[Rfam]
RNA sequence: CACGCAUCGCCUGAUCCUUGCUCCACCUCAGUAUUAGACAGAGUAAGGUGAGCAAAGUUUCAGGUGUGUGGGUGA
Number, nucleotide and partner (000 for none) at each position: 001c000002a073003c072004g000005c070006a069007u068008c066009g065010c064011c063012u062013g061014a060015u000016c057017c000018u055019u054020g000021c052022u051023c050024c000025a000026c048027c047028u046029c000030a000031g000032u000033a000034u000035u000036a000037g000038a000039c000040a000041g000042a000043g000044u000045a000046a028047g027048g026049u000050g023051a022052g021053c000054a019055a018056a000057g016058u000059u000060u014061c013062a012063g011064g010065u009066g008067u000068g007069u006070g005071g000072g003073u002074g000075a000